[Rfam]
RNA sequence: UUCGUCGUGAGGCGUGCAGUGAAGAAAGCGAGACUGCAAAAUCCGGUACUGACGAACAGAAACUGCAUAAGAGGCAGGGAGCCGUGGGUAAGCAAGCACACCUUUGCAAUGCCCCUGGCCAACUAACGGCUCUGUGUAGAUGCAGCAGGAAUCGGAGGAAGGAAUGUGCU
Numbered sequence: 001u002u003c004g005u006c007g008u009g010a011g012g013c014g015u016g017c018a019g020u021g022a023a024g025a026a027a028g029c030g031a032g033a034c035u036g037c038a039a040a041a042u043c044c045g046g047u048a049c050u051g052a053c054g055a056a057c058a059g060a061a062a063c064u065g066c067a068u069a070a071g072a073g074g075c076a077g078g079g080a081g082c083c084g085u086g087g088g089u090a091a092g093c094a095a096g097c098a099c100a101c102c103u104u105u106g107c108a109a110u111g112c113c114c115c116u117g118g119c120c121a122a123c124u125a126a127c128g129g130c131u132c133u134g135u136g137u138a139g140a141u142g143c144a145g146c147a148g149g150a151a152u153c154g155g156a157g158g159a160a161g162g163a164a165u166g167u168g169c170u
Base pairs, nucleotide, nucleotide: 001016003014004013005012006011028170031167037162042156043155044154045153046152047150049148050147051146063145064144065143066142067141068140074137075136076135078133079132080131081130082129083128084127086114087113088112089111092107093106094105095104
Dot-bracket structure: (.((((....)))).)...........(..(.....(....((((((.(((...........((((((.....(((.(((((((.((((..((((........))))...))))............))))))).)))..))))))))).).))))).....)....)..)